[Rfam]
RNA sequence: CGUUCUCUGCUGUGAACGACGGUGUGCAAAACAUUCGCCUUGUCCCUUAAUUACGACCACGGGGGCGCGACGAAGCCGGGAGUGCAAGUCCGCCUUGUAGCGGGAAGCCCGACGGCCUAACAACGUCCCCACUUGAACCCCGGGUUCAAGGUCGUUUCGCACACAUCGUCAUGGCGGAGAAUGC
Numbered sequence: 001c002g003u004u005c006u007c008u009g010c011u012g013u014g015a016a017c018g019a020c021g022g023u024g025u026g027c028a029a030a031a032c033a034u035u036c037g038c039c040u041u042g043u044c045c046c047u048u049a050a051u052u053a054c055g056a057c058c059a060c061g062g063g064g065g066c067g068c069g070a071c072g073a074a075g076c077c078g079g080g081a082g083u084g085c086a087a088g089u090c091c092g093c094c095u096u097g098u099a100g101c102g103g104g105a106a107g108c109c110c111g112a113c114g115g116c117c118u119a120a121c122a123a124c125g126u127c128c129c130c131a132c133u134u135g136a137a138c139c140c141c142g143g144g145u146u147c148a149a150g151g152u153c154g155u156u157u158c159g160c161a162c163a164c165a166u167c168g169u170c171a172u173g174g175c176g177g178a179g180a181a182u183g184c
Base pairs, nucleotide, nucleotide: 002182003181004180005179006178007177008176009175010174011173012172013171014170015169017168018167019166037152038151039150041148042147045144046143061130062129063128065126066125067124073118075116076115077114078113084108085107089104090103091102092101093100
RNA: 6S / SsrS RNA
Organism: Xanthomonas campestris